Shown here is a 47-nucleotide RNA sequence from Argiope bruennichi, a member of the family "Histone 3' UTR stem-loop".
Lineage of the source: Eukaryota > Araneae > Entelegynae > Orbiculariae > Argiope.
Gene Ontology term of the family: mRNA 3'-end processing by stem-loop binding and cleavage.
Nucleotides: 047
Base pairs, nucleotide, nucleotide: 006021007020008019009018010017011016
Number, partner (000 for none) and nucleotide at each position: 001000a002000a003000a004000a005000a006021g007020g008019c009018c010017c011016u012000u013000u014000u015000a016011a017010g018009g019008g020007c021006c022000a023000u024000c025000a026000c027000a028000u029000g030000u031000u032000g033000u034000c035000a036000a037000a038000c039000a040000c041000g042000g043000g044000u045000u046000u047000u